[Rfam]
RNA sequence: CUAUCCAGGAAGGCCGUGAACCACAUCCGCUCCGUGUGGAAGGACCUCUUGGAAGACA
Numbered sequence: 001c002u003a004u005c006c007a008g009g010a011a012g013g014c015c016g017u018g019a020a021c022c023a024c025a026u027c028c029g030c031u032c033c034g035u036g037u038g039g040a041a042g043g044a045c046c047u048c049u050u051g052g053a054a055g056a057c058a
Stems, first nucleotide, its partner, number of pairs: 004053007012045001014043002021039006